A member of the RNA family "U1 spliceosomal RNA" from Gulo gulo, 162 nucleotides long.
Rfam classes the family as a spliceosomal small nuclear RNA.
On this family, see Pomeranz Krummel et al., Nature 2009: "Crystal structure of human spliceosomal U1 snRNP at 5.5 A resolution".

RNA sequence: AUAUUUACUUAGCAGGGAAAAUGCCACUAUCAAGUAGGUGGUUUUCCCAGGAUGAGGCUUGACCAUUGCACUGCCGUCCUGCUGACUCGGCGAUUUCCCCAAAUGUGGAAAACUCAACUGCCUGACUUGUGAUGGGGAGGACUGCCUUCGUGCUCUUUCCCU
Numbered sequence: 001a002u003a004u005u006u007a008c009u010u011a012g013c014a015g016g017g018a019a020a021a022u023g024c025c026a027c028u029a030u031c032a033a034g035u036a037g038g039u040g041g042u043u044u045u046c047c048c049a050g051g052a053u054g055a056g057g058c059u060u061g062a063c064c065a066u067u068g069c070a071c072u073g074c075c076g077u078c079c080u081g082c083u084g085a086c087u088c089g090g091c092g093a094u095u096u097c098c099c100c101a102a103a104u105g106u107g108g109a110a111a112a113c114u115c116a117a118c119u120g121c122c123u124g125a126c127u128u129g130u131g132a133u134g135g136g137g138a139g140g141a142c143u144g145c146c147u148u149c150g151u152g153c154u155c156u157u158u159c160c161c162u
Stems, first nucleotide, its partner, number of pairs: 012121004016048002019045003023042005051088002054086001056083003061078003092115002094112001095110002098108002136160004141156001144153002
Gene Ontology terms of the family: pre-mRNA 5'-splice site binding, U1 snRNP and mRNA 5'-splice site recognition.